[Rfam]
RNA sequence: UUACUGGCGGAGUGUCUCAUCUAACCCUAAAUAAGAGCGGUCUCCUGUACUCAACGUUUGCUGUUUUCUGUCUCUGGCUUUCAGCAAACUACAGGAGGCUUUUUGUUUGACGCCGGAAACAUUUACGAACAAAAAAAGCCAAGAAAAUCACUCCGUCGCGUUCAGUUUCCGGCAGAAACACCGUGAAUAUUCCGCCGUGGUCAGCUCUGGCUGCCACGAAGAGUUAGUCUCUGUUGCUCCGGUGUUUUCAUGUCGGGACUGUCGAUAACUGAGCAGAUUAAACUGAGCAGGGCUUAUCUGCCAGAUCUAACAGUGAUCUGGUUAGGCUCCCACGCUCAAACACUC
Numbered sequence: 001u002u003a004c005u006g007g008c009g010g011a012g013u014g015u016c017u018c019a020u021c022u023a024a025c026c027c028u029a030a031a032u033a034a035g036a037g038c039g040g041u042c043u044c045c046u047g048u049a050c051u052c053a054a055c056g057u058u059u060g061c062u063g064u065u066u067u068c069u070g071u072c073u074c075u076g077g078c079u080u081u082c083a084g085c086a087a088a089c090u091a092c093a094g095g096a097g098g099c100u101u102u103u104u105g106u107u108u109g110a111c112g113c114c115g116g117a118a119a120c121a122u123u124u125a126c127g128a129a130c131a132a133a134a135a136a137a138g139c140c141a142a143g144a145a146a147a148u149c150a151c152u153c154c155g156u157c158g159c160g161u162u163c164a165g166u167u168u169c170c171g172g173c174a175g176a177a178a179c180a181c182c183g184u185g186a187a188u189a190u191u192c193c194g195c196c197g198u199g200g201u202c203a204g205c206u207c208u209g210g211c212u213g214c215c216a217c218g219a220a221g222a223g224u225u226a227g228u229c230u231c232u233g234u235u236g237c238u239c240c241g242g243u244g245u246u247u248u249c250a251u252g253u254c255g256g257g258a259c260u261g262u263c264g265a266u267a268a269c270u271g272a273g274c275a276g277a278u279u280a281a282a283c284u285g286a287g288c289a290g291g292g293c294u295u296a297u298c299u300g301c302c303a304g305a306u307c308u309a310a311c312a313g314u315g316a317u318c319u320g321g322u323u324a325g326g327c328u329c330c331c332a333c334g335c336u337c338a339a340a341c342a343c344u345c
Stems, first nucleotide, its partner, number of pairs: 006157009041098005056089008073144003076140003079136003161273007168257007177246007196218005202213004220232004285337004290329007302320005
The record is a 345-nucleotide sequence from Sphaeramia orbicularis, which matches "Vertebrate telomerase RNA" in Rfam. The base pairs follow the family's consensus structure, which is taken from published work. The family is grouped with related families in Rfam's "Telomerase clan". The match comes from Rfam's covariance-model search (117 bits). Telomerase is a ribonucleoprotein reverse transcriptase that synthesises telomeric DNA. Telomerase RNAs differ greatly in sequence and structure between vertebrates, ciliates and yeasts, but they share a 5' pseudoknot structure close to the template sequence. Vertebrate telomerase RNAs have a 3' H/ACA snoRNA-like domain. The source organism's lineage runs through Eukaryota, Euteleosteomorpha, Gobiaria, Apogonoidei and Sphaeramia. Rfam classes the family as a non-coding RNA gene. A reference for the family is Chen et al. (2000), "Secondary structure of vertebrate telomerase RNA", Cell.